[Rfam]
A member of the RNA family "TPP riboswitch aptamer (THI element)" from Denitrobaculum tricleocarpae, 139 nucleotides long.
RNA sequence: AGCCGUUCCUAGGGGGGCCUUUUAUCAGCCUGCGGGUUGAUAUUGACGGGCUGAGAUACUGGGCAGGCGGCAACGCCCCCAGUGACCCUUCGAACCUGAUCCGGGUAAUGCCGGCGCAGGGAAGGAAACCGGUUCUCAC
Number, nucleotide and partner (000 for none) at each position: 001a000002g000003c000004c000005g000006u127007u126008c125009c124010u123011a089012g088013g087014g086015g000016g000017g051018c050019c049020u048021u000022u000023u000024a000025u000026c000027a000028g000029c000030c000031u000032g000033c000034g000035g000036g000037u000038u000039g000040a000041u000042a000043u000044u000045g000046a000047c000048g020049g019050g018051c017052u000053g000054a000055g000056a000057u000058a083059c082060u081061g080062g079063g000064c000065a000066g000067g000068c000069g000070g000071c000072a000073a000074c000075g000076c000077c000078c000079c062080c061081a060082g059083u058084g000085a000086c014087c013088c012089u011090u000091c000092g000093a000094a000095c120096c119097u118098g117099a000100u000101c114102c113103g112104g111105g000106u000107a000108a000109u000110g000111c104112c103113g102114g101115c000116g000117c098118a097119g096120g095121g000122a000123a010124g009125g008126a007127a006128a000129c000130c000131g000132g000133u000134u000135c000136u000137c000138a000139c000
The organism belongs to Denitrobaculum, within Bacteria.